[Rfam]
RNA: mir-1285 microRNA precursor family
RNA sequence: AUGAGGUCUCGCUAUGUUACCUAGGCUGGUCUUGAAUUCAGGGUUCGGGAUCAGCCUGGGCAACAUAGUGAGACCUCAU
Numbered sequence: 001a002u003g004a005g006g007u008c009u010c011g012c013u014a015u016g017u018u019a020c021c022u023a024g025g026c027u028g029g030u031c032u033u034g035a036a037u038u039c040a041g042g043g044u045u046c047g048g049g050a051u052c053a054g055c056c057u058g059g060g061c062a063a064c065a066u067a068g069u070g071a072g073a074c075c076u077c078a079u
Base pairs, nucleotide, nucleotide: 007073008072009071010070011069012068013067014066020060021059022058023057024056025055032054033053034052